The record is a 312-nucleotide RNA sequence from Podarcis lilfordi, which matches "Small Cajal body-specific RNA 7" in Rfam. The source organism's lineage runs through Eukaryota, Episquamata, Laterata, Lacertibaenia and Podarcis. Rfam 15.1 lists 570 matches to the family in 531 species. Its family is annotated with RNA processing and nucleolus in the Gene Ontology.
[Rfam]
RNA sequence: UGGAAAUGAUGAAAUGGAGGUAAUAGGGAAUAGGGAAUAGUAAGGGGUGUGUAAAUUAGGGAAGGGGGGCAAUUUUUAGUCUGAAGUAAAAGGGGUUGGUUGUGUAAAAGUUAUAUAGUGAUGUAAACUGUGGGCACUGAUAAAGAAGCUGUUGAUUUCGCAGUGCAUCUGAGGCCUUGUUGCUAAAUCAUCUGGGUUUACUGCAACAUUGCCAGUGAUUAGAGCCCAAAAUAAGCUCGCAGUUUGCAUCUAGACAUUUUAAACCUCUAACAGGUUCCUUUUGUUAGGCAAAAGGAAUGUGAUCUGAUCUAA
Numbered sequence: 001u002g003g004a005a006a007u008g009a010u011g012a013a014a015u016g017g018a019g020g021u022a023a024u025a026g027g028g029a030a031u032a033g034g035g036a037a038u039a040g041u042a043a044g045g046g047g048u049g050u051g052u053a054a055a056u057u058a059g060g061g062a063a064g065g066g067g068g069g070c071a072a073u074u075u076u077u078a079g080u081c082u083g084a085a086g087u088a089a090a091a092g093g094g095g096u097u098g099g100u101u102g103u104g105u106a107a108a109a110g111u112u113a114u115a116u117a118g119u120g121a122u123g124u125a126a127a128c129u130g131u132g133g134g135c136a137c138u139g140a141u142a143a144a145g146a147a148g149c150u151g152u153u154g155a156u157u158u159c160g161c162a163g164u165g166c167a168u169c170u171g172a173g174g175c176c177u178u179g180u181u182g183c184u185a186a187a188u189c190a191u192c193u194g195g196g197u198u199u200a201c202u203g204c205a206a207c208a209u210u211g212c213c214a215g216u217g218a219u220u221a222g223a224g225c226c227c228a229a230a231a232u233a234a235g236c237u238c239g240c241a242g243u244u245u246g247c248a249u250c251u252a253g254a255c256a257u258u259u260u261a262a263a264c265c266u267c268u269a270a271c272a273g274g275u276u277c278c279u280u281u282u283g284u285u286a287g288g289c290a291a292a293a294g295g296a297a298u299g300u301g302a303u304c305u306g307a308u309c310u311a312a
Base pairs, nucleotide, nucleotide: 001311002310003309004308178208179207180206181205182204183203184200185199186198187197188196189195
It is annotated as a small Cajal body RNA.
The literature on the family includes a 2002 paper in EMBO J by Darzacq et al., "Cajal body-specific small nuclear RNAs: a novel class of 2'-O-methylation and pseudouridylation guide RNAs".